Shown here is a 141-nucleotide sequence from Paenibacillus foliorum, a member of the family "c-di-AMP riboswitch aptamer (ydaO/yuaA leader)". NCBI's taxonomy places the organism under Bacteria, Bacillati, Bacilli, Paenibacillaceae, Paenibacillus. The match comes from Rfam's covariance-model search (76 bits).
[Rfam]
RNA sequence: CUUCUAAAAAUGCCGAAUCAAACAGAUAUCUUGUUUGUACGGGGGACGAUUUAUUGGGGUGAAUGAAUGCAGGCAUGCAAGCUAGGGAGAAUCCUCUUCCCGAAUCCGUCAACUAACCUCGGAGGCACAAGGAGGGAAUAA
Numbered sequence: 001c002u003u004c005u006a007a008a009a010a011u012g013c014c015g016a017a018u019c020a021a022a023c024a025g026a027u028a029u030c031u032u033g034u035u036u037g038u039a040c041g042g043g044g045g046a047c048g049a050u051u052u053a054u055u056g057g058g059g060u061g062a063a064u065g066a067a068u069g070c071a072g073g074c075a076u077g078c079a080a081g082c083u084a085g086g087g088a089g090a091a092u093c094c095u096c097u098u099c100c101c102g103a104a105u106c107c108g109u110c111a112a113c114u115a116a117c118c119u120c121g122g123a124g125g126c127a128c129a130a131g132g133a134g135g136g137a138a139u140a141a
Base pairs, nucleotide, nucleotide: 011127012126013125014124019037020036021035022034023033024032025031040121041120042119043118044117047056048055057107058106059105065082068079069078070077071076085101086100087099088098